About this RNA: The family of this 56-nucleotide RNA from Synaphobranchus kaupii is "Antizyme RNA frameshifting stimulation element". Lineage of the source: Eukaryota > Bilateria > Neopterygii > Elopocephalai > Synaphobranchus. Its family is annotated with translational frameshifting in the Gene Ontology. On this family, see Ivanov et al., J Mol Biol 2004: "Identification of a new antizyme mRNA +1 frameshifting stimulatory pseudoknot in a subset of diverse invertebrates and its apparent absence in intermediate species". This family represents a structural element which is found in antizyme mRNA and is known to promote frameshifting. The family's RNA type in Rfam is frameshift element.
RNA sequence: UGAUGCCCCUCACCCACAAGUGAAGAUCCCGGGUGGGCGAGGGAUAAGCAGGGAUC
Numbered sequence: 001u002g003a004u005g006c007c008c009c010u011c012a013c014c015c016a017c018a019a020g021u022g023a024a025g026a027u028c029c030c031g032g033g034u035g036g037g038c039g040a041g042g043g044a045u046a047a048g049c050a051g052g053g054a055u056c
Stems, first nucleotide, its partner, number of pairs: 007043005013037005025056006